The family of this 144-nucleotide RNA sequence from Miscanthus lutarioriparius is "small nucleolar RNA snoR134". The source organism's lineage runs through Eukaryota, Viridiplantae, Streptophyta, Euphyllophyta and Miscanthus. The literature on the family includes a 2009 paper in Nucleic Acids Res by Chen and Wu, "Mining small RNA sequencing data: a new approach to identify small nucleolar RNAs in Arabidopsis". Rfam classes the family as an H/ACA-box small nucleolar RNA. Rfam links the family to the GO terms RNA processing and nucleolus.

RNA sequence: UUGCACGGUGGUAACCCUAGGCUUGUCGGAUUUGUACCCUUUGAAGAAGGAAGCCCCAAUGCUGUGCUAUAGCUUGCCAUUCAAAGUGUUGCGGGACCUGAAAAAUCUUUUUGAUCGGUCUGUGUCAAAGGAAUGGAUACAAAU
Numbered sequence: 001u002u003g004c005a006c007g008g009u010g011g012u013a014a015c016c017c018u019a020g021g022c023u024u025g026u027c028g029g030a031u032u033u034g035u036a037c038c039c040u041u042u043g044a045a046g047a048a049g050g051a052a053g054c055c056c057c058a059a060u061g062c063u064g065u066g067c068u069a070u071a072g073c074u075u076g077c078c079a080u081u082c083a084a085a086g087u088g089u090u091g092c093g094g095g096a097c098c099u100g101a102a103a104a105a106u107c108u109u110u111u112u113g114a115u116c117g118g119u120c121u122g123u124g125u126c127a128a129a130g131g132a133a134u135g136g137a138u139a140c141a142a143a144u
Stems, first nucleotide, its partner, number of pairs: 003067006020055004024050001026047002077136006087127002090124006097113001